[Rfam]
RNA sequence: GUGGGGAGAAGCUCAUUGAAGAGGUCACUAGCAGAGUGCACUGUCACUCAAUCCUGCACCUUGGGGAAGGUCUGAGAAAAGAGCCACUGAAUGCCCUUGCAGAGCAUCUCCUGACAAAGGAGAGUGAGCGCACAGACACUUGGGCCACAGUGAGUUGCUGUCAUAGGAGAAAUCAGCUUGUGCCAGUUACCAGCACACCUGAUGGAUAUGAUCUCACUGGCUUGGAACCGCUCACGGCUGGCACAUGAGUCCAAUGGAUGAGCUGGGAUUAACUUCCAGAACCCAAUUCAGACUACUCUCUUCUCAC
Dot-bracket structure: ((((..(((..((((((...((((.........(((((......))))).........)))).........[[[[[.....((((......(((.(.....).)))((((((.....))))))(((((((.............(((........................................................................))).......))))))))))).................))))))((((((.....)))))).......]]]]].......)))..))))
RNA: Nuclear RNase P